[Rfam]
RNA sequence: AAUUGAAAAAGGCAAACCUGAGGAAACUCAGCGACGCAAAGCUAUAGGGGCUAAAUUGUCUUGACAAUAUGCCAGCCAGUUGCCGAA
Numbered sequence: 001a002a003u004u005g006a007a008a009a010a011g012g013c014a015a016a017c018c019u020g021a022g023g024a025a026a027c028u029c030a031g032c033g034a035c036g037c038a039a040a041g042c043u044a045u046a047g048g049g050g051c052u053a054a055a056u057u058g059u060c061u062u063g064a065c066a067a068u069a070u071g072c073c074a075g076c077c078a079g080u081u082g083c084c085g086a087a
Base pairs, nucleotide, nucleotide: 012037013036018031019030020029021028022027040081041080042079043078047077048076049073050072051071056067057066058065059064
Shown here is an 87-nucleotide RNA from Neobacillus mesonae, a member of the family "c-di-GMP-I riboswitch aptamer". The match comes from Rfam's covariance-model search (83 bits). Pairs were carried over by alignment from the consensus structure, which is taken from published work.